A member of the RNA family "Purine riboswitch aptamer" from Caloramator mitchellensis, 102 nucleotides long. The source organism's lineage runs through Bacteria, Bacillota, Clostridia, Eubacteriales and Caloramator. From the family's description: Riboswitches are metabolite binding domains within certain messenger RNAs that serve as precision sensors for their corresponding targets. It scores 83 bits against the family's covariance model.

Nucleotides: 102
Stems, first nucleotide, its partner, number of pairs: 018088008029049007058078007
Number, partner (000 for none) and nucleotide at each position: 001000a002000a003000u004000u005000g006000u007000g008000a009000a010000u011000a012000a013000g014000a015000g016000g017000c018088c019087a020086u021085c022084c023083a024082u025081a026000u027000a028000a029049u030048c031047c032046u033045a034044a035043g036000a037000a038000u039000a040000g041000g042000g043035c044034u045033u046032g047031g048030g049029a050000g051000u052000u053000u054000c055000u056000a057000c058078c059077g060076g061075g062074a063073a064072g065000c066000c067000g068000u069000a070000a071000a072064c073063u074062u075061c076060u077059c078058g079000a080000c081025u082024a083023u084022g085021g086020g087019u088018g089000a090000g091000c092000u093000a094000c095000g096000g097000u098000g099000g100000a101000a102000u